[Rfam]
RNA sequence: AACUGAAUAAAAAUUUUAACUCGUAUAUCCCCUGAAUAUGGCAGGGAGUUUCUACCGGGAACCUUAAAUUCCUGACUAUGAGUGAUUUUAAUAUACUA
Numbered sequence: 001a002a003c004u005g006a007a008u009a010a011a012a013a014u015u016u017u018a019a020c021u022c023g024u025a026u027a028u029c030c031c032c033u034g035a036a037u038a039u040g041g042c043a044g045g046g047a048g049u050u051u052c053u054a055c056c057g058g059g060a061a062c063c064u065u066a067a068a069u070u071c072c073u074g075a076c077u078a079u080g081a082g083u084g085a086u087u088u089u090a091a092u093a094u095a096c097u098a
Stems, first nucleotide, its partner, number of pairs: 019083007030046005056074006